[Rfam]
RNA sequence: CAAAAGUUGAGACCAGAAACAACUUUAAAAAACGGGGCGAAAUCCGAAAAGCCAUAUGAGUAGGAAAAUAU
Numbered sequence: 001c002a003a004a005a006g007u008u009g010a011g012a013c014c015a016g017a018a019a020c021a022a023c024u025u026u027a028a029a030a031a032a033c034g035g036g037g038c039g040a041a042a043u044c045c046g047a048a049a050a051g052c053c054a055u056a057u058g059a060g061u062a063g064g065a066a067a068a069u070a071u
Base pairs, nucleotide, nucleotide: 006023007022008021009020036053037052038051043065044064
The family of this 71-nucleotide RNA sequence is "DUF805 RNA".